[Rfam]
RNA: Molybdenum/Tungsten riboswitch aptamer (Moco RNA motif)
RNA sequence: GACAAGAAGCCUCUCCGAGCCGGUUAACCUAAAGGGCAACCCAUGGUUAGUCGGCCUGGGUUUUCCAAGCCCACGGGGUAUAUCUGGAAACGGGUAUGCCUUCCGAGGUUUGAAAAGGAGGUGGCUCAGUUAGGGU
Numbered sequence: 001g002a003c004a005a006g007a008a009g010c011c012u013c014u015c016c017g018a019g020c021c022g023g024u025u026a027a028c029c030u031a032a033a034g035g036g037c038a039a040c041c042c043a044u045g046g047u048u049a050g051u052c053g054g055c056c057u058g059g060g061u062u063u064u065c066c067a068a069g070c071c072c073a074c075g076g077g078g079u080a081u082a083u084c085u086g087g088a089a090a091c092g093g094g095u096a097u098g099c100c101u102u103c104c105g106a107g108g109u110u111u112g113a114a115a116a117g118g119a120g121g122u123g124g125c126u127c128a129g130u131u132a133g134g135g136u
Stems, first nucleotide, its partner, number of pairs: 006127001012121005019055011034041002057073005076101011102113002